[Rfam]
RNA sequence: GCCGUGGUUUAGGUAGUUUCAUGUUGUUGGGAUGGCUCCGGGCUCGGCAACAAGAAACUGCCUUAAUUACGUC
Numbered sequence: 001g002c003c004g005u006g007g008u009u010u011a012g013g014u015a016g017u018u019u020c021a022u023g024u025u026g027u028u029g030g031g032a033u034g035g036c037u038c039c040g041g042g043c044u045c046g047g048c049a050a051c052a053a054g055a056a057a058c059u060g061c062c063u064u065a066a067u068u069a070c071g072u073c
Stems, first nucleotide, its partner, number of pairs: 003071007011063009022052010
A member of the RNA family "mir-196 microRNA precursor family" from Origma solitaria, 73 nucleotides long. It scores 78 bits against the family's covariance model. The literature on the family includes a 2003 paper in Science by Lim et al., "Vertebrate microRNA genes". The base pairs follow the family's consensus structure, which was predicted with PFOLD. Lineage of the source: Eukaryota > Metazoa > Teleostomi > Acanthizidae > Origma.